[Rfam]
RNA sequence: AAAUUCAAUGUACAAGCCAUCCAUAUAUUUCUGGCAAUAAGGGUCAGGAGUUUCUACGAGAAACCGUAAAUUUCUCACUAUGGGUGAAUCCGCAUAAGAU
Numbered sequence: 001a002a003a004u005u006c007a008a009u010g011u012a013c014a015a016g017c018c019a020u021c022c023a024u025a026u027a028u029u030u031c032u033g034g035c036a037a038u039a040a041g042g043g044u045c046a047g048g049a050g051u052u053u054c055u056a057c058g059a060g061a062a063a064c065c066g067u068a069a070a071u072u073u074c075u076c077a078c079u080a081u082g083g084g085u086g087a088a089u090c091c092g093c094a095u096a097a098g099a100u
Stems, first nucleotide, its partner, number of pairs: 018086008029049007058076006
This 100-nucleotide sequence from Clostridium aciditolerans belongs to the Rfam family "Purine riboswitch aptamer". Riboswitches are metabolite binding domains within certain messenger RNAs that serve as precision sensors for their corresponding targets.